Shown here is a 155-nucleotide RNA from Helicobacter pylori, a member of the family "Bacterial antisense RNA HPnc0260".
RNA sequence: AGUGUUAUAUCUUUGAAGCGCUAUAAAAUCGUUAUUAGAAGUGCGUUUAAUACCCCUUUAGAAUUUAUAAAGAUCAAAAACUCGCAAAAAAAUGAGAAUUAAAAUUGGAGUGAUAAUGGUGGCCACGACUGGACUUGAACCAGCGGCCACUACCA
Numbered sequence: 001a002g003u004g005u006u007a008u009a010u011c012u013u014u015g016a017a018g019c020g021c022u023a024u025a026a027a028a029u030c031g032u033u034a035u036u037a038g039a040a041g042u043g044c045g046u047u048u049a050a051u052a053c054c055c056c057u058u059u060a061g062a063a064u065u066u067a068u069a070a071a072g073a074u075c076a077a078a079a080a081c082u083c084g085c086a087a088a089a090a091a092a093u094g095a096g097a098a099u100u101a102a103a104a105u106u107g108g109a110g111u112g113a114u115a116a117u118g119g120u121g122g123c124c125a126c127g128a129c130u131g132g133a134c135u136u137g138a139a140c141c142a143g144c145g146g147c148c149a150c151u152a153c154c155a
Stems, first nucleotide, its partner, number of pairs: 024049003030043004064078003117152006126145002129143004

Background:
The organism belongs to Helicobacter pylori, within Bacteria.